[Rfam]
RNA sequence: UUAAUAUUUCACACAUAUUCUCAUAUAUACUCGACAAGAUGGGUCGAGAGUUUCUACCUAGUUACCAACACUUACUAGACUAUGAGAAAAAGCAACGACUUU
Dot-bracket structure: .................((((((((....((((((.......)))))).........(((((.(.......).)))))..))))))))..............
Rfam assigns this 102-nucleotide RNA from Priestia taiwanensis to the family "Purine riboswitch aptamer". A search with the family's covariance model found it, with a score of 74 bits. Gene Ontology term of the family: purine nucleobase biosynthetic process. Rfam describes the family as follows. Riboswitches are metabolite binding domains within certain messenger RNAs that serve as precision sensors for their corresponding targets. Allosteric rearrangement of mRNA structure is mediated by ligand binding, and this results in modulation of gene expression. A class of riboswitches that selectively recognises guanine and becomes saturated at concentrations as low as 5 nM. In Bacillus subtilis, this mRNA motif is located on at least five separate transcriptional units that together encode 17 genes that are mostly involved in purine transport and purine nucleotide biosynthesis.